[Rfam]
RNA: Archaeal Small RNA 162
RNA sequence: GCCUUUGGGCACGCAGGAUUCAGGGGAGGGCUCAAACUUUGCUGAAUCCUGCAGAACAUUCCCACAUUUGAAAACCCCAUAAUCCUUUAAAAGUUUUAUGUGUAAACUCUCAAACAAUCAGGCAUAAGAGAAGAAUACAAAUCUGAAAUAAAUUAACAGAAAAAUAGUUUGAGAGCUUACACAGAAGCUA
Numbered sequence: 001g002c003c004u005u006u007g008g009g010c011a012c013g014c015a016g017g018a019u020u021c022a023g024g025g026g027a028g029g030g031c032u033c034a035a036a037c038u039u040u041g042c043u044g045a046a047u048c049c050u051g052c053a054g055a056a057c058a059u060u061c062c063c064a065c066a067u068u069u070g071a072a073a074a075c076c077c078c079a080u081a082a083u084c085c086u087u088u089a090a091a092a093g094u095u096u097u098a099u100g101u102g103u104a105a106a107c108u109c110u111c112a113a114a115c116a117a118u119c120a121g122g123c124a125u126a127a128g129a130g131a132a133g134a135a136u137a138c139a140a141a142u143c144u145g146a147a148a149u150a151a152a153u154u155a156a157c158a159g160a161a162a163a164a165u166a167g168u169u170u171g172a173g174a175g176c177u178u179a180c181a182c183a184g185a186a187g188c189u190a
Base pairs, nucleotide, nucleotide: 003187004186005185006184007063008062009061013052014051015050016049017048018047019046020045021044022043023042025040026039027038028037080098081097082096085093086092087091099183100182101181102180103179104178107175108174109173110172111171112170113169114168115167118129119128132144133143134142
Dot-bracket structure: ..(((((((...(((((((((((.((((........)))).)))))))))))........)))................(((..(((...)))..)))((((((..(((((((((..((........))..(((.......)))......................)))))))))..))))))))))...